Rfam assigns this 108-nucleotide sequence from Ichthyobacterium seriolicida to the family "Bacteroidales small SRP". The family's RNA type in Rfam is non-coding RNA gene. Its Rfam clan is "SRP clan". For this family Rfam cites "A high-resolution transcriptome map identifies small RNA regulation of metabolism in the gut microbe Bacteroides thetaiotaomicron" (Ryan et al., Nat Commun, 2020).

[Rfam]
RNA sequence: AAUAAAGCGGCGAGUUCUACGCAACUAGCUCCUAUUUAAUCCCCCAGGACAGGAAUGUAGCAAGGGUUGAGUGGUUGUAGCAGUGUGAUGUAGGUUGCUUGUCGCUUU
Numbered sequence: 001a002a003u004a005a006a007g008c009g010g011c012g013a014g015u016u017c018u019a020c021g022c023a024a025c026u027a028g029c030u031c032c033u034a035u036u037u038a039a040u041c042c043c044c045c046a047g048g049a050c051a052g053g054a055a056u057g058u059a060g061c062a063a064g065g066g067u068u069g070a071g072u073g074g075u076u077g078u079a080g081c082a083g084u085g086u087g088a089u090g091u092a093g094g095u096u097g098c099u100u101g102u103c104g105c106u107u108u
Stems, first nucleotide, its partner, number of pairs: 008104008017093005022087002024084002